[Rfam]
RNA sequence: AAACAGUUGAGAUCCUUUUGAAUAAAGUAGUGGAGUGAUUCAAAAGGUUCUCACAAA
Dot-bracket structure: .......(((((.((((((((((.(..........).)))))))))).)))))....
RNA: Plastid-ccsA-ndhD-1 3UTR RNA